[Rfam]
RNA: Gut-1 RNA
RNA sequence: CAGUGAAAUAAAUCCAAAAGGAUUUGUUAAAUACCUAUCGGUGUGAAAUAUGGAUUUUCCAUGUGAAGUGCCUG
Numbered sequence: 001c002a003g004u005g006a007a008a009u010a011a012a013u014c015c016a017a018a019a020g021g022a023u024u025u026g027u028u029a030a031a032u033a034c035c036u037a038u039c040g041g042u043g044u045g046a047a048a049u050a051u052g053g054a055u056u057u058u059c060c061a062u063g064u065g066a067a068g069u070g071c072c073u074g
Stems, first nucleotide, its partner, number of pairs: 008027008031044004048064007